[Rfam]
RNA sequence: GUUUUCAGUUUUCCUCGGUAGUUAACUGCAGCCGGUUCCAUAACUUGGCAGUUAACUGCCGAUGGACAU
Number, nucleotide and partner (000 for none) at each position: 001g000002u000003u000004u000005u000006c000007a000008g000009u000010u000011u000012u065013c064014c000015u062016c061017g060018g059019u058020a057021g056022u055023u054024a053025a052026c051027u050028g049029c048030a000031g000032c000033c000034g000035g000036u000037u000038c000039c000040a000041u000042a000043a000044c000045u000046u000047g000048g029049c028050a027051g026052u025053u024054a023055a022056c021057u020058g019059c018060c017061g016062a015063u000064g013065g012066a000067c000068a000069u000
RNA: MIR2629 microRNA precursor family
Organism: Medicago truncatula